The family of this 170-nucleotide sequence from Vibrio proteolyticus is "M-box riboswitch aptamer (ykoK leader)".
[Rfam]
RNA sequence: ACAGCAUCUCGUUAGGCGAGGCUCCUGUUCAAACAUAGGCCACUGAUCCCACGACAUCGAGAGAUGCCCAGGAUUAGGACAGUUAUCAUCGGCUUAAGGUGUUAACCCAAGUGGCUUUCACGUCAGUGAAUACGUUGUACAGUGCUGAAGCUAAGACGUGGGGAUUGUUC
Numbered sequence: 001a002c003a004g005c006a007u008c009u010c011g012u013u014a015g016g017c018g019a020g021g022c023u024c025c026u027g028u029u030c031a032a033a034c035a036u037a038g039g040c041c042a043c044u045g046a047u048c049c050c051a052c053g054a055c056a057u058c059g060a061g062a063g064a065u066g067c068c069c070a071g072g073a074u075u076a077g078g079a080c081a082g083u084u085a086u087c088a089u090c091g092g093c094u095u096a097a098g099g100u101g102u103u104a105a106c107c108c109a110a111g112u113g114g115c116u117u118u119c120a121c122g123u124c125a126g127u128g129a130a131u132a133c134g135u136u137g138u139a140c141a142g143u144g145c146u147g148a149a150g151c152u153a154a155g156a157c158g159u160g161g162g163g164a165u166u167g168u169u170c
Base pairs, nucleotide, nucleotide: 006165007164008163009162010161011157012156013097015152016151017150020146021145022144025142026141027140028139030137031136032135039115040114041113042112043111045075046074047073048072049071055066056065057064058063082106083105084104085103088100089099090098117130118129119128
M-box riboswitch, also know as ykoK leader is described as a metaloregulatory RNA that sense divalent metals and function as a genetic control element of genes related to divalent metal transport in bacteria. It was first reported upstream of the B.subtilis ykoK gene and genes with related functions in other bacteria. The base pairs follow the family's consensus structure. It scores 140 bits against the family's covariance model.